[Rfam]
RNA sequence: UCCCAAUGAAGAAACAUUCACAUGUCUUACUUCCUGUCUUAGCUCCAGAGCCUGUGAAGGUGAACCCACUGGGGCUAGCUGGGGGAGAAGAGGAAAGUUGGUUCCAGAAGGAACUGUCUGAGGGAC
Numbered sequence: 001u002c003c004c005a006a007u008g009a010a011g012a013a014a015c016a017u018u019c020a021c022a023u024g025u026c027u028u029a030c031u032u033c034c035u036g037u038c039u040u041a042g043c044u045c046c047a048g049a050g051c052c053u054g055u056g057a058a059g060g061u062g063a064a065c066c067c068a069c070u071g072g073g074g075c076u077a078g079c080u081g082g083g084g085g086a087g088a089a090g091a092g093g094a095a096a097g098u099u100g101g102u103u104c105c106a107g108a109a110g111g112a113a114c115u116g117u118c119u120g121a122g123g124g125a126c
Stems, first nucleotide, its partner, number of pairs: 001125004